This 139-nucleotide RNA sequence from Hordeum vulgare belongs to the Rfam family "Small nucleolar RNA snoR2/U65".
The family's RNA type in Rfam is H/ACA-box small nucleolar RNA.
A search with the family's covariance model found it, with a score of 81 bits.
Pairs were carried over by alignment from the consensus structure, which was predicted with WAR.
Rfam links the family to the GO terms RNA processing and nucleolus.

RNA sequence: GGCCUAAUGGUCCUUCUCUGGUAGCUACAUGCAUUGACCAGGGGAUCUAUAAUUGGGCGCAGAAUCAGUUUUCACGCUUCGAUAGGAACCUGAGAUUCAUUCCAGUUAGUCCACGGAGCCUAUUUCUGUGAUUAAAUUG
Numbered sequence: 001g002g003c004c005u006a007a008u009g010g011u012c013c014u015u016c017u018c019u020g021g022u023a024g025c026u027a028c029a030u031g032c033a034u035u036g037a038c039c040a041g042g043g044g045a046u047c048u049a050u051a052a053u054u055g056g057g058c059g060c061a062g063a064a065u066c067a068g069u070u071u072u073c074a075c076g077c078u079u080c081g082a083u084a085g086g087a088a089c090c091u092g093a094g095a096u097u098c099a100u101u102c103c104a105g106u107u108a109g110u111c112c113a114c115g116g117a118g119c120c121u122a123u124u125u126c127u128g129u130g131a132u133u134a135a136a137u138u139g
Stems, first nucleotide, its partner, number of pairs: 002058007009050001014045005020039003024032002072131005085120002090116003094111004